Shown here is a 474-nucleotide part of an RNA from Selenidium serpulae, a member of the family "Eukaryotic small subunit ribosomal RNA". It is one of the family's seed sequences. Its family is annotated with structural constituent of ribosome and ribosome in the Gene Ontology. Its Rfam clan is "SSU clan". The base pairs follow the family's consensus structure, which is taken from published work.

[Rfam]
RNA sequence: CAGUUAAAACGCUCGUAGUUGUUGUCCAACUGUACGUCGAACUUCUUAUGAAGUACGUCUCCACAGUUUAGCGGAACUCAUAUUCCGCCAAAACCUUGAGGAAAGAUUAGUGUUCCAAGCAGUUCCACUUUGUCCUCCCCAGCAUGGUAUUUCACCUAUUCGAAGAAGAUCAUUGCCAAAUCUUCAUCAUACAAAAUAGAAACUCAAGGGGGUAUACGUAUUUUAAUGUCAGAGGUGAAAUUCCUGGAUUAUUAAAAGACGAACAAUUGCGAAAGCAUUCGCCAAGCGAUUUUUCUUUGAUCAAGAACGAAAGUUAGGGGAUUGAAGACGAUCAGAUACCGUCGUAAUCCUGACUGUAAACUAUGCCAACUUGUCGCAGGUAGAUCUUUCGUCGAAUCUAUCGUCGGCUUUUGAGAAAUCAAAGUCUUUGGGUUCUGGGGGGAGUAUGAUCGCAAGCUUGAAACUUAAAGGAAU
Numbered sequence: 001c002a003g004u005u006a007a008a009a010c011g012c013u014c015g016u017a018g019u020u021g022u023u024g025u026c027c028a029a030c031u032g033u034a035c036g037u038c039g040a041a042c043u044u045c046u047u048a049u050g051a052a053g054u055a056c057g058u059c060u061c062c063a064c065a066g067u068u069u070a071g072c073g074g075a076a077c078u079c080a081u082a083u084u085c086c087g088c089c090a091a092a093a094c095c096u097u098g099a100g101g102a103a104a105g106a107u108u109a110g111u112g113u114u115c116c117a118a119g120c121a122g123u124u125c126c127a128c129u130u131u132g133u134c135c136u137c138c139c140c141a142g143c144a145u146g147g148u149a150u151u152u153c154a155c156c157u158a159u160u161c162g163a164a165g166a167a168g169a170u171c172a173u174u175g176c177c178a179a180a181u182c183u184u185c186a187u188c189a190u191a192c193a194a195a196a197u198a199g200a201a202a203c204u205c206a207a208g209g210g211g212g213u214a215u216a217c218g219u220a221u222u223u224u225a226a227u228g229u230c231a232g233a234g235g236u237g238a239a240a241u242u243c244c245u246g247g248a249u250u251a252u253u254a255a256a257a258g259a260c261g262a263a264c265a266a267u268u269g270c271g272a273a274a275g276c277a278u279u280c281g282c283c284a285a286g287c288g289a290u291u292u293u294u295c296u297u298u299g300a301u302c303a304a305g306a307a308c309g310a311a312a313g314u315u316a317g318g319g320g321a322u323u324g325a326a327g328a329c330g331a332u333c334a335g336a337u338a339c340c341g342u343c344g345u346a347a348u349c350c351u352g353a354c355u356g357u358a359a360a361c362u363a364u365g366c367c368a369a370c371u372u373g374u375c376g377c378a379g380g381u382a383g384a385u386c387u388u389u390c391g392u393c394g395a396a397u398c399u400a401u402c403g404u405c406g407g408c409u410u411u412u413g414a415g416a417a418a419u420c421a422a423a424g425u426c427u428u429u430g431g432g433u434u435c436u437g438g439g440g441g442g443a444g445u446a447u448g449a450u451c452g453c454a455a456g457c458u459u460g461a462a463a464c465u466u467a468a469a470g471g472a473a474u
Base pairs, nucleotide, nucleotide: 001437002436003435009434011308013306014305018301019300020299199295200294201293202292204289205288211283212282213281216278217261218260221257222256223255224254225253226252227251228250232243233242234241269276270275313354314353315352316351317350318349323347327343328342329341330340365433366432367431369425370424373408374407379402380401381400382399383398384397387395388394413420414419439466440465441464448459449458451456